[Rfam]
RNA sequence: UGGACAAUUUAUUGUAUUCGACUAUAUUCGACUGUAUUCAAGGCGUGAAACAGCGGAUUACACUGUUUUUAAACGAAAAAUGAAUCAAUUAACAUAAUAGACUCUU
Numbered sequence: 001u002g003g004a005c006a007a008u009u010u011a012u013u014g015u016a017u018u019c020g021a022c023u024a025u026a027u028u029c030g031a032c033u034g035u036a037u038u039c040a041a042g043g044c045g046u047g048a049a050a051c052a053g054c055g056g057a058u059u060a061c062a063c064u065g066u067u068u069u070u071a072a073a074c075g076a077a078a079a080a081u082g083a084a085u086c087a088a089u090u091a092a093c094a095u096a097a098u099a100g101a102c103u104c105u106u
Stems, first nucleotide, its partner, number of pairs: 002105003009100007017092002030090002033087002036085005044075003047069007
Dot-bracket structure: .(((....(((((((.((...........((.((.(((((...((((((((((.........)))))))...))).....))))))).)))).)))))))..))).

Record summary: The family of this 106-nucleotide RNA from Nicotiana attenuata is "MIR6152 microRNA precursor family". The family has 2 seed sequences and 5,807 matches in Rfam 15.1. A search with the family's covariance model found it, with a score of 75 bits. The family's consensus secondary structure was predicted with RNAalifold. NCBI's taxonomy places the organism under Eukaryota, Viridiplantae, Spermatophyta, Mesangiospermae, Nicotiana. Its family is annotated with RISC complex and miRNA-mediated post-transcriptional gene silencing in the Gene Ontology.